[Rfam]
RNA: c-di-AMP riboswitch aptamer (ydaO/yuaA leader)
RNA sequence: CUAACCCUGCCGCCGCCCCGGAGUCAGCAUCGAGUAGGAACAGCGGCGGGGACGGGGGAACCAAGUGAUGGACGGCUCCGGGAGACCGGGGCCUCGGGGUGAAGUGCGGCCUUCCUGCAGCAGGAACCGCGCCGGGUGUUCUCCCACCCGAACCCGACAGCUCACUCCGUAGGCAGCCAGGAGAGGUAAU
Number, nucleotide and partner (000 for none) at each position: 001c172002u000003a000004a000005c051006c050007c049008u048009g047010c046011c045012g044013c043014c000015g000016c000017c000018c000019c000020g000021g000022a000023g000024u000025c000026a000027g000028c000029a000030u000031c000032g000033a000034g000035u000036a000037g000038g000039a000040a000041c000042a000043g013044c012045g011046g010047c009048g008049g007050g006051g005052a170053c169054g168055g167056g166057g165058g000059a000060a000061c000062c096063a000064a000065g000066u000067g000068a000069u000070g000071g000072a000073c000074g000075g000076c000077u000078c000079c000080g000081g000082g000083a000084g000085a000086c000087c000088g000089g000090g000091g000092c000093c000094u000095c000096g062097g155098g154099g153100u000101g000102a000103a000104g000105u131106g130107c129108g128109g000110c000111c000112u000113u000114c000115c000116u000117g000118c000119a000120g000121c000122a000123g000124g000125a000126a000127c000128c108129g107130c106131g105132c000133c000134g149135g148136g147137u146138g000139u000140u000141c000142u000143c000144c000145c000146a137147c136148c135149c134150g000151a000152a000153c099154c098155c097156g000157a000158c000159a000160g000161c000162u000163c000164a000165c057166u056167c055168c054169g053170u052171a000172g001173g000174c000175a000176g000177c000178c000179a000180g000181g000182a000183g000184a000185g000186g000187u000188a000189a000190u000